Annotation:
Rfam assigns this 46-nucleotide sequence from Cyanoderma ruficeps to the family "Histone 3' UTR stem-loop". The match comes from Rfam's covariance-model search (40 bits). The family's consensus secondary structure is taken from published work. By type it is a cis-regulatory element. For this family Rfam cites "Formation of the 3' end of histone mRNA" (Dominski and Marzluff, Gene, 1999).

RNA sequence: CCAAAGGCUCUUUUCAGAGCCACCCACAUCUUCUUUGAAGGAGCAG
Numbered sequence: 001c002c003a004a005a006g007g008c009u010c011u012u013u014u015c016a017g018a019g020c021c022a023c024c025c026a027c028a029u030c031u032u033c034u035u036u037g038a039a040g041g042a043g044c045a046g
Stems, first nucleotide, its partner, number of pairs: 006021006
Dot-bracket structure: .....((((((....)))))).........................